RNA sequence: UAUCUUUGCACGCUGAUAGAGAAACUAUCACGACAUACAUCGAUCUCAUUUAAAACAAUAUUGGAAUG
Numbered sequence: 001u002a003u004c005u006u007u008g009c010a011c012g013c014u015g016a017u018a019g020a021g022a023a024a025c026u027a028u029c030a031c032g033a034c035a036u037a038c039a040u041c042g043a044u045c046u047c048a049u050u051u052a053a054a055a056c057a058a059u060a061u062u063g064g065a066a067u068g
Stems, first nucleotide, its partner, number of pairs: 014030006
Shown here is a 68-nucleotide RNA from Dokdonia donghaensis, a member of the family "S15-Flavobacteria ribosomal protein leader". Pairs were carried over by alignment from the consensus structure, which is taken from published work. It is one of the family's seed sequences.